[Rfam]
RNA sequence: AUGACUGGUCCGGGAGAGACCGCUGCGGCGGCGCCGAAGGGGAAUGCAGAAGCUCUCAGGCAAAAGGGUCGGACCACGACG
Numbered sequence: 001a002u003g004a005c006u007g008g009u010c011c012g013g014g015a016g017a018g019a020c021c022g023c024u025g026c027g028g029c030g031g032c033g034c035c036g037a038a039g040g041g042g043a044a045u046g047c048a049g050a051a052g053c054u055c056u057c058a059g060g061c062a063a064a065a066g067g068g069u070c071g072g073a074c075c076a077c078g079a080c081g
Stems, first nucleotide, its partner, number of pairs: 006076008020031004033061003036057002040055003
RNA: Glycine riboswitch aptamer